[Rfam]
Nucleotides: 068
Stems, first nucleotide, its partner, number of pairs: 002067011014055004019050001022047006029040002
Number, partner (000 for none) and nucleotide at each position: 001000u002067a003066c004065u005064c006063g007062u008061c009060c010059g011058c012057c013000c014055u015054u016053c017052g018000u019050c020000u021000u022047g023046a024045c025044u026043g027042g028000c029040g030039c031000u032000g033000u034000c035000g036000c037000u038000u039030g040029c041000a042027u043026c044025a045024g046023u047022c048000u049000u050019g051000u052017c053016g054015a055014a056000u057012g058011g059010u060009g061008g062007g063006u064005g065004a066003g067002u068000u